[Rfam]
RNA: Iron response element II
RNA sequence: AUAUUAUCAGUGACAGGGAGCUCACUAUAAUGU
Numbered sequence: 001a002u003a004u005u006a007u008c009a010g011u012g013a014c015a016g017g018g019a020g021c022u023c024a025c026u027a028u029a030a031u032g033u
Base pairs, nucleotide, nucleotide: 001033002032003031004030005029006028007027009026010025011024012023013022014020